[Rfam]
RNA sequence: AGAGGCCACAAGUUCGAGGCCAUAGCAGAAGCACUCAUGGUGCAGCCUGUCAGAUCCAACAAAUCUGUGAAUUCUGCU
Numbered sequence: 001a002g003a004g005g006c007c008a009c010a011a012g013u014u015c016g017a018g019g020c021c022a023u024a025g026c027a028g029a030a031g032c033a034c035u036c037a038u039g040g041u042g043c044a045g046c047c048u049g050u051c052a053g054a055u056c057c058a059a060c061a062a063a064u065c066u067g068u069g070a071a072u073u074c075u076g077c078u
Stems, first nucleotide, its partner, number of pairs: 018047003024078007031043003051067005
Dot-bracket structure: .................[[[...((((((((((.......))).]]]...(((((.......)))))....)))))))
The record is a 78-nucleotide RNA sequence from Alligator sinensis, which matches "Mammalian CPEB3 ribozyme" in Rfam. The source organism's lineage runs through Eukaryota, Deuterostomia, Vertebrata, Euteleostomi and Alligator. On this family, see Teixeira et al., Nature 2004: "Autocatalytic RNA cleavage in the human beta-globin pre-mRNA promotes transcription termination". Gene Ontology term of the family: RNA nuclease activity.